About this RNA
A member of the RNA family "Group II catalytic intron D1-D4-1" from Abiotrophia defectiva, 71 nucleotides long. Group II introns are found in rRNA, tRNA and mRNA of organelles in fungi, plants and protists, and also in mRNA in bacteria. The literature on the family includes a 2001 paper in Trends Genet by Bonen and Vogel, "The ins and outs of group II introns".

RNA sequence: UAACCAUUGCACAAAGCAAUGCUGAACACACAGAAGUCAGCAGAGGUCAUAGUAGUCGAGAGACAAAGGAC
Numbered sequence: 001u002a003a004c005c006a007u008u009g010c011a012c013a014a015a016g017c018a019a020u021g022c023u024g025a026a027c028a029c030a031c032a033g034a035a036g037u038c039a040g041c042a043g044a045g046g047u048c049a050u051a052g053u054a055g056u057c058g059a060g061a062g063a064c065a066a067a068g069g070a071c
Base pairs, nucleotide, nucleotide: 001024002023005021006020007019008018009017010016037044038043046071047070048069055064056063057062